[Rfam]
RNA: mir-19 microRNA precursor family
Organism: Anolis carolinensis
RNA sequence: UGGUUAGUUUUGCAGGUUUGCAUCCAGCUGUAUAAUGUGUUGCUGUGCAAAUCCAUGCAAAACUGACUGU
Numbered sequence: 001u002g003g004u005u006a007g008u009u010u011u012g013c014a015g016g017u018u019u020g021c022a023u024c025c026a027g028c029u030g031u032a033u034a035a036u037g038u039g040u041u042g043c044u045g046u047g048c049a050a051a052u053c054c055a056u057g058c059a060a061a062a063c064u065g066a067c068u069g070u
Stems, first nucleotide, its partner, number of pairs: 001069014015054002017051007026044003